[Rfam]
RNA sequence: ACCAAGUAUCAGGAACGCCAUUUGGCGUACCAACCGAGCACAAAAGCAACGGUGGUUUAGAAUACGGACAGUUCGGUCAAAAAAAUGAUUUCUC
Numbered sequence: 001a002c003c004a005a006g007u008a009u010c011a012g013g014a015a016c017g018c019c020a021u022u023u024g025g026c027g028u029a030c031c032a033a034c035c036g037a038g039c040a041c042a043a044a045a046g047c048a049a050c051g052g053u054g055g056u057u058u059a060g061a062a063u064a065c066g067g068a069c070a071g072u073u074c075g076g077u078c079a080a081a082a083a084a085a086u087g088a089u090u091u092c093u094c
Stems, first nucleotide, its partner, number of pairs: 006065004015028005029056003034052003038047002042089001045086001067078003
The record is a 94-nucleotide RNA from Winogradskyella epiphytica, which matches "SAM-I/IV (S-adenosyl methionine) riboswitch aptamer" in Rfam.
The family is grouped with related families in Rfam's "SAM clan".
A reference for the family is Weinberg et al. (2008), "The aptamer core of SAM-IV riboswitches mimics the ligand-binding site of SAM-I riboswitches", RNA.
Rfam 15.1 lists 567 matches to the family in 508 species.
Taxonomically the source falls in Winogradskyella (Bacteria, Pseudomonadati, Flavobacteriia, Flavobacteriales).
The match comes from Rfam's covariance-model search (57 bits).